Rfam assigns this 87-nucleotide sequence from Nicotiana tabacum to the family "MIR6152 microRNA precursor family". Rfam links the family to the GO terms miRNA-mediated post-transcriptional gene silencing and RISC complex. Pairs were carried over by alignment from the consensus structure, which was predicted with RNAalifold. Taxonomically the source falls in Nicotiana (Eukaryota, Streptophyta, Gunneridae, Nicotianeae). The family has 2 seed sequences and 5,807 matches in Rfam 15.1. The match comes from Rfam's covariance-model search (62 bits).

[Rfam]
RNA sequence: UGGACAAAUUAUUGUAUUCACGGUGUGAAAUAUGAGAUUACACUGUUUUUAAAAUGGAAAGUGAAUCAAUUAACAUAUUAGACUCCU
Numbered sequence: 001u002g003g004a005c006a007a008a009u010u011a012u013u014g015u016a017u018u019c020a021c022g023g024u025g026u027g028a029a030a031u032a033u034g035a036g037a038u039u040a041c042a043c044u045g046u047u048u049u050u051a052a053a054a055u056g057g058a059a060a061g062u063g064a065a066u067c068a069a070u071u072a073a074c075a076u077a078u079u080a081g082a083c084u085c086c087u
Base pairs, nucleotide, nucleotide: 002086003085004084009081010080011070013068014067016066017065018064019063020062021061024056025055026054027049028048029047030046031045032044